A member of the RNA family "Enterobacteria greA leader" from Lonsdalea quercina, 125 nucleotides long. The match comes from Rfam's covariance-model search (94 bits). The source organism's lineage runs through Bacteria, Pseudomonadati, Pseudomonadota, Gammaproteobacteria and Lonsdalea. The family's consensus secondary structure is taken from published work. Gene Ontology term of the family: regulation of gene expression.
RNA sequence: GCAAUACUACGGCCCUAAGUAGGCUAAAGUAAACGAUGAUCCCCAUGGAACUCUGGGGUAAAAUACGUAUCAAAAUGCAAAACCGAGCCUGCCCUGGAAAAAUUAUUUCCGGGCUGGGCCGCUUU
Numbered sequence: 001g002c003a004a005u006a007c008u009a010c011g012g013c014c015c016u017a018a019g020u021a022g023g024c025u026a027a028a029g030u031a032a033a034c035g036a037u038g039a040u041c042c043c044c045a046u047g048g049a050a051c052u053c054u055g056g057g058g059u060a061a062a063a064u065a066c067g068u069a070u071c072a073a074a075a076u077g078c079a080a081a082a083c084c085g086a087g088c089c090u091g092c093c094c095u096g097g098a099a100a101a102a103u104u105a106u107u108u109c110c111g112g113g114c115u116g117g118g119c120c121g122c123u124u125u
Stems, first nucleotide, its partner, number of pairs: 001040001004037002010035002015029001041048002057071004088118004093113006